[Rfam]
RNA sequence: CGGUGAGGUAGAGGCGCGAAUACGAAUAGUACCCUUUAUGAGGAUGACAACGUUGACUAAAGGAGAAAGGCAAGUUCGCCGAAGUUUAUAGAAAAAGUCAAGUUUCUAUAAGCUGGGACUGUAUUAAAUAAAUGCAGGACUGUCACAGUUGAAAGACUGUGGAGAACUACUACUGAA
Numbered sequence: 001c002g003g004u005g006a007g008g009u010a011g012a013g014g015c016g017c018g019a020a021u022a023c024g025a026a027u028a029g030u031a032c033c034c035u036u037u038a039u040g041a042g043g044a045u046g047a048c049a050a051c052g053u054u055g056a057c058u059a060a061a062g063g064a065g066a067a068a069g070g071c072a073a074g075u076u077c078g079c080c081g082a083a084g085u086u087u088a089u090a091g092a093a094a095a096a097g098u099c100a101a102g103u104u105u106c107u108a109u110a111a112g113c114u115g116g117g118a119c120u121g122u123a124u125u126a127a128a129u130a131a132a133u134g135c136a137g138g139a140c141u142g143u144c145a146c147a148g149u150u151g152a153a154a155g156a157c158u159g160u161g162g163a164g165a166a167c168u169a170c171u172a173c174u175g176a177a
Base pairs, nucleotide, nucleotide: 007171008170009169010168011167016079017078018077019076020075021074024071033063034062035061036060037059038058083114084113085112086111087110088109089108090107091106092105093104094103115141116140119137120136121135122134123133124132125131143162144161145160146159147158148157149156
Dot-bracket structure: ......(((((....((((((..(........((((((...................)))))).......)..))))))...((((((((((((........))))))))))))((..(((((((.....)))))))..)).(((((((......)))))))....)))))......